[Rfam]
RNA: c-di-AMP riboswitch aptamer (ydaO/yuaA leader)
RNA sequence: ACAUCACCGGGCCGGCGUCGCGCGGAGCCGGGGACCCAACGCUCCCUGGGGUGAAUCCGCCGCACGCCGGCGGUAGGGCGUCUCCUGGCCCGAACCCGUCAGCUAACCCGGUAGGCGGGCAAGGAGAAAGA
Numbered sequence: 001a002c003a004u005c006a007c008c009g010g011g012c013c014g015g016c017g018u019c020g021c022g023c024g025g026a027g028c029c030g031g032g033g034a035c036c037c038a039a040c041g042c043u044c045c046c047u048g049g050g051g052u053g054a055a056u057c058c059g060c061c062g063c064a065c066g067c068c069g070g071c072g073g074u075a076g077g078g079c080g081u082c083u084c085c086u087g088g089c090c091c092g093a094a095c096c097c098g099u100c101a102g103c104u105a106a107c108c109c110g111g112u113a114g115g116c117g118g119g120c121a122a123g124g125a126g127a128a129a130g131a
Stems, first nucleotide, its partner, number of pairs: 005117001007115002027112006037048002049097003057073004076091004